[Rfam]
RNA sequence: UUUGCUUCUUAUGGUGAACGCCCUAUAAAUUUCGAUUGGUUGGGGAUGUUCAAGUUUCCGAAGCAUAUAUUAAAAAUCACCAGUAUUAAACAACACCGUGCUUGCUUUUUUGCUCUGUACUGUGCUACCUAUCUCCUGGUACAAUU
Number, nucleotide and partner (000 for none) at each position: 001u000002u000003u065004g064005c063006u062007u061008c060009u000010u000011a000012u000013g000014g000015u052016g051017a050018a049019c048020g000021c045022c044023c043024u042025a000026u000027a000028a000029a000030u000031u000032u000033c000034g000035a000036u000037u000038g000039g000040u000041u000042g024043g023044g022045g021046a000047u000048g019049u018050u017051c016052a015053a000054g000055u000056u000057u000058c000059c000060g008061a007062a006063g005064c004065a003066u000067a000068u000069a000070u000071u000072a000073a000074a000075a000076a000077u000078c000079a140080c139081c138082a137083g136084u000085a134086u000087u000088a000089a000090a000091c000092a126093a000094c124095a000096c122097c000098g120099u119100g118101c000102u000103u000104g000105c000106u000107u000108u000109u000110u000111u000112g000113c000114u000115c000116u000117g000118u100119a099120c098121u000122g096123u000124g094125c000126u092127a000128c000129c000130u000131a000132u000133c000134u085135c000136c083137u082138g081139g080140u079141a000142c000143a000144a000145u000146u000

Shown here is a 146-nucleotide RNA from Prunus yedoensis, a member of the family "small nucleolar RNA snoR137".
Pairs were carried over by alignment from the consensus structure, which was predicted with RNAalifold.
It scores 106 bits against the family's covariance model.